The family of this 36-nucleotide sequence from Musa balbisiana is "Plastid psbT antisense RNA". It scores 49 bits against the family's covariance model.
RNA sequence: GAGUUGGAUCCCAAGUUUUUGGAAUGCUCCAAAUUC
Numbered sequence: 001g002a003g004u005u006g007g008a009u010c011c012c013a014a015g016u017u018u019u020u021g022g023a024a025u026g027c028u029c030c031a032a033a034u035u036c
Stems, first nucleotide, its partner, number of pairs: 002016001004014004018033006
Rfam's curators write: Plastid-psbT-asRNA is an antisense RNA (asRNA) motif reported in Plastids It has been shown that psbT expression is controlled by two antisense RNAs originated from psbN transcription by the nuclear-encoded polymerase (NEP), in which the short antisense RNA hybridizes to psbT CDS, thereby stabilizing psbT transcript while blocking its translation during photooxidative stress. The source organism's lineage runs through Eukaryota, Streptophyta, Spermatophyta, Liliopsida and Musa. On this family, see Zghidi-Abouzid et al., Nucleic Acids Res 2011: "Characterization of plastid psbT sense and antisense RNAs". Pairs were carried over by alignment from the consensus structure, which was predicted with LocARNA.